[Rfam]
RNA: Mammalian CPEB3 ribozyme
Organism: Crocodylus porosus
RNA sequence: UUUAGAUGCCAAGGCCAUAGUAGAAACGCUUAUGGCAUGGCCCUAUUAGAUUCCAUUGAAUCUGUGAAUACUGCU
Numbered sequence: 001u002u003u004a005g006a007u008g009c010c011a012a013g014g015c016c017a018u019a020g021u022a023g024a025a026a027c028g029c030u031u032a033u034g035g036c037a038u039g040g041c042c043c044u045a046u047u048a049g050a051u052u053c054c055a056u057u058g059a060a061u062c063u064g065u066g067a068a069u070a071c072u073g074c075u
Stems, first nucleotide, its partner, number of pairs: 013042004019075005025069001026038001028036001047064007